[Rfam]
Shown here is a 114-nucleotide RNA from Biomphalaria glabrata, a member of the family "Potassium channel RNA editing signal".

RNA sequence: GUGGGCUACGGUGACUUUUACCCUACCACAGUGUCCGGCUACUUCGUGGGCGUCCUCUGCGCUCUGUCCGGGCUGCUGCUGCUCUCCAUGCCCAUUGCCAUCAUCGCGUCUAAC
Numbered sequence: 001g002u003g004g005g006c007u008a009c010g011g012u013g014a015c016u017u018u019u020a021c022c023c024u025a026c027c028a029c030a031g032u033g034u035c036c037g038g039c040u041a042c043u044u045c046g047u048g049g050g051c052g053u054c055c056u057c058u059g060c061g062c063u064c065u066g067u068c069c070g071g072g073c074u075g076c077u078g079c080u081g082c083u084c085u086c087c088a089u090g091c092c093c094a095u096u097g098c099c100a101u102c103a104u105c106g107c108g109u110c111u112a113a114c
Stems, first nucleotide, its partner, number of pairs: 001114002004111002007108001009106003013102002018097001020095001037077003049063003
The family's RNA type in Rfam is cis-regulatory element. It scores 52 bits against the family's covariance model.